RNA sequence: UUCGUUCAUCCCGAAAGGGACGGAAGUAGGUGAUCAUACCGAAGGAACGCAUC
Numbered sequence: 001u002u003c004g005u006u007c008a009u010c011c012c013g014a015a016a017g018g019g020a021c022g023g024a025a026g027u028a029g030g031u032g033a034u035c036a037u038a039c040c041g042a043a044g045g046a047a048c049g050c051a052u053c
Base pairs, nucleotide, nucleotide: 003049004048005047006046007045009020010019011018012017023050029040030039031038
Rfam assigns this 53-nucleotide RNA to the family "Glutamine riboswitch aptamer (glnA leader)". Its family is annotated with glutamine binding in the Gene Ontology. The base pairs follow the family's consensus structure, which is taken from published work. For this family Rfam cites "Bacterial aptamers that selectively bind glutamine" (Ames and Breaker, RNA Biol, 2011).